[Rfam]
Background:
Rfam assigns this 150-nucleotide sequence from Lupinus albus to the family "Small nucleolar RNA snoR145". The source organism's lineage runs through Eukaryota, Viridiplantae, Tracheophyta, Papilionoideae and Lupinus. The family's RNA type in Rfam is H/ACA-box small nucleolar RNA. The family has 19 seed sequences and 286 matches in Rfam 15.1.
RNA sequence: AUGCGAAGGUCCCAGCAGAGGGGCGAGUUACUCUUCAUAUUGAGGCUUCCCUAACGAUUCAUUUUAUACGCUUCGCAGAUUUAUUUGCCGAAUCGUAAGAUGCUUAAAUGUUUUGAUUUUUUGUGCAUCUGGAACUUCCGCUAUAUAUGU
Number, nucleotide and partner (000 for none) at each position: 001a000002u000003g076004c075005g074006a073007a072008g071009g000010u000011c020012c000013c018014a000015g000016c000017a000018g013019a000020g011021g000022g000023g000024c000025g051026a000027g049028u000029u000030a000031c044032u043033c042034u000035u000036c000037a000038u000039a000040u000041u000042g033043a032044g031045g000046c000047u000048u000049c027050c000051c025052u000053a000054a000055c000056g000057a000058u000059u000060c000061a000062u000063u000064u000065u000066a000067u000068a000069c000070g000071c008072u007073u006074c005075g004076c003077a000078g000079a000080u000081u000082u000083a000084u000085u000086u000087g141088c140089c000090g138091a137092a136093u000094c000095g000096u000097a000098a000099g129100a128101u000102g126103c125104u000105u123106a122107a121108a120109u000110g000111u000112u000113u000114u000115g000116a000117u000118u000119u000120u108121u107122u106123g105124u000125g103126c102127a000128u100129c099130u000131g000132g000133a000134a000135c000136u092137u091138c090139c000140g088141c087142u000143a000144u000145a000146u000147a000148u000149g000150u000